RNA: Histone 3' UTR stem-loop
RNA sequence: AAAAAGGCUCUUUUCAGAGCCACAAGACAUUCAGAAAGAGUCGAAG
Numbered sequence: 001a002a003a004a005a006g007g008c009u010c011u012u013u014u015c016a017g018a019g020c021c022a023c024a025a026g027a028c029a030u031u032c033a034g035a036a037a038g039a040g041u042c043g044a045a046g
Base pairs, nucleotide, nucleotide: 006021007020008019009018010017011016